[Rfam]
RNA sequence: AUCACGAAUGCGGACGGAACUACAUGGUCUCCAAAACCCGAGGUCGUGGGUUCGAAUCCCACCGGCUCCACUUUCGAGUUCUCACUCGGAGCCGUAGCUCAGCCUGGUAGAGCGCGAAAACGUUUCGUCAAUUCUUGUCGUGAUGAC
Numbered sequence: 001a002u003c004a005c006g007a008a009u010g011c012g013g014a015c016g017g018a019a020c021u022a023c024a025u026g027g028u029c030u031c032c033a034a035a036a037c038c039c040g041a042g043g044u045c046g047u048g049g050g051u052u053c054g055a056a057u058c059c060c061a062c063c064g065g066c067u068c069c070a071c072u073u074u075c076g077a078g079u080u081c082u083c084a085c086u087c088g089g090a091g092c093c094g095u096a097g098c099u100c101a102g103c104c105u106g107g108u109a110g111a112g113c114g115c116g117a118a119a120a121c122g123u124u125u126c127g128u129c130a131a132u133u134c135u136u137g138u139c140g141u142g143a144u145g146a147c
Stems, first nucleotide, its partner, number of pairs: 002143006013129007039116002046062005053107001063094006097113004
A member of the RNA family "Y RNA-like" from Planctomyces sp. SH-PL14, 147 nucleotides long. It is annotated as a small RNA. It scores 73 bits against the family's covariance model. In Deinococcus radiodurans Rsr is tethered via Y RNA to the exoribonuclease PNPase and channels single-stranded RNA into the PNPase cavity.